[Rfam]
RNA sequence: GGUUAUCGUUCCAUUCACUACGGAUCGUUCGGCACGUACCUGCCGAUGAAGGAGAAGACA
Numbered sequence: 001g002g003u004u005a006u007c008g009u010u011c012c013a014u015u016c017a018c019u020a021c022g023g024a025u026c027g028u029u030c031g032g033c034a035c036g037u038a039c040c041u042g043c044c045g046a047u048g049a050a051g052g053a054g055a056a057g058a059c060a
Base pairs, nucleotide, nucleotide: 011052012051014050015049016048017047029046030045031044032043033042034041

msiK RNA: a 60-nucleotide sequence from Microbacteriaceae bacterium MWH-Ta3. A search with the family's covariance model found it, with a score of 61 bits. The family's RNA type in Rfam is cis-regulatory element. The family's consensus secondary structure is taken from published work.